[Rfam]
RNA sequence: GUUCAUCCACCUUGCAGGCGAGACCCUAUCAAUAUUGCCUCUGCUUUUUGAACUGUAACUGGAGUAGUGCAAUAUUGCUUAUAGGGUCUUGACUUUGAGGAAAA
Numbered sequence: 001g002u003u004c005a006u007c008c009a010c011c012u013u014g015c016a017g018g019c020g021a022g023a024c025c026c027u028a029u030c031a032a033u034a035u036u037g038c039c040u041c042u043g044c045u046u047u048u049u050g051a052a053c054u055g056u057a058a059c060u061g062g063a064g065u066a067g068u069g070c071a072a073u074a075u076u077g078c079u080u081a082u083a084g085g086g087u088c089u090u091g092a093c094u095u096u097g098a099g100g101a102a103a104a
Stems, first nucleotide, its partner, number of pairs: 020090010030077009041067004045062001
RNA: mir-454 microRNA precursor family